[Rfam]
RNA sequence: ACAAACAACUGAAUAGCUUUUCGUAUAAUCCCGGGAAUCGGCCCGGGAGUCUCUACGAGGUCACCGCAAAUGAUCUGUCUACGGAAAGGGAAAGCAUGCUA
Number, nucleotide and partner (000 for none) at each position: 001a000002c000003a000004a000005a000006c000007a000008a000009c000010u000011g000012a000013a000014u000015a000016g000017c000018u087019u086020u085021u084022c083023g082024u081025a080026u000027a000028a000029u048030c047031c046032c045033g044034g043035g042036a000037a000038u000039c000040g000041g000042c035043c034044c033045g032046g031047g030048a029049g000050u000051c000052u000053c000054u000055a000056c000057g000058a076059g075060g074061u073062c072063a071064c000065c000066g000067c000068a000069a000070a000071u063072g062073a061074u060075c059076u058077g000078u000079c000080u025081a024082c023083g022084g021085a020086a019087a018088g000089g000090g000091a000092a000093a000094g000095c000096a000097u000098g000099c000100u000101a000
RNA: Purine riboswitch aptamer